Source information: Shown here is a 120-nucleotide RNA from Rhodovibrio salinarum, a member of the family "TPP riboswitch aptamer (THI element)".
RNA sequence: AGAUAACGGCCGGGGUGCCGUGCUGGACCGGGCGAAGGAGCCCGCACUGGCGCGGCUGAGAGCACACCCGCUGAACCUGAUCGGGGUCGUCCCCGCGAAGGGAGCCGUGGAGGACAUGAC
Numbered sequence: 001a002g003a004u005a006a007c008g009g010c011c012g013g014g015g016u017g018c019c020g021u022g023c024u025g026g027a028c029c030g031g032g033c034g035a036a037g038g039a040g041c042c043c044g045c046a047c048u049g050g051c052g053c054g055g056c057u058g059a060g061a062g063c064a065c066a067c068c069c070g071c072u073g074a075a076c077c078u079g080a081u082c083g084g085g086g087u088c089g090u091c092c093c094c095g096c097g098a099a100g101g102g103a104g105c106c107g108u109g110g111a112g113g114a115c116a117u118g119a120c
Stems, first nucleotide, its partner, number of pairs: 006108005011070004016064001017056010076101003082095004